[Rfam]
RNA: Ribosomal protein L10 leader
RNA sequence: GUAAUUGAACCCAUUUUGCCUAAGACUCAGGUGGUGCUUGCACCUUAAUUUCCUGCCGAGGAAGUUGAUUUUUAACUUUGCCCGCAUGUCUUCUUGGCGUGCGGGAUUUCUUUUGCAAAA
Numbered sequence: 001g002u003a004a005u006u007g008a009a010c011c012c013a014u015u016u017u018g019c020c021u022a023a024g025a026c027u028c029a030g031g032u033g034g035u036g037c038u039u040g041c042a043c044c045u046u047a048a049u050u051u052c053c054u055g056c057c058g059a060g061g062a063a064g065u066u067g068a069u070u071u072u073u074a075a076c077u078u079u080g081c082c083c084g085c086a087u088g089u090c091u092u093c094u095u096g097g098c099g100u101g102c103g104g105g106a107u108u109u110c111u112u113u114u115g116c117a118a119a120a
Stems, first nucleotide, its partner, number of pairs: 028055004033044003081105010
Dot-bracket structure: ...........................((((.(((......))).......)))).........................((((((((((.....))))))))))...............